[Rfam]
RNA: THF (Tetrahydrofolate) riboswitch aptamer
Organism: Ruminococcaceae bacterium D16
RNA sequence: GACAGAGUAGAUCCAGCGCGUCAAGUGCCAUCGGAUGGGAGGUUGCCGAUGGACGAAGGGACCCUUCCCGCGUUGCUGUAUCGCAUCCGCUGCC
Numbered sequence: 001g002a003c004a005g006a007g008u009a010g011a012u013c014c015a016g017c018g019c020g021u022c023a024a025g026u027g028c029c030a031u032c033g034g035a036u037g038g039g040a041g042g043u044u045g046c047c048g049a050u051g052g053a054c055g056a057a058g059g060g061a062c063c064c065u066u067c068c069c070g071c072g073u074u075g076c077u078g079u080a081u082c083g084c085a086u087c088c089g090c091u092g093c094c
Stems, first nucleotide, its partner, number of pairs: 001094001003092003010082003014078005019072003025054002028052007038088003042084001058069004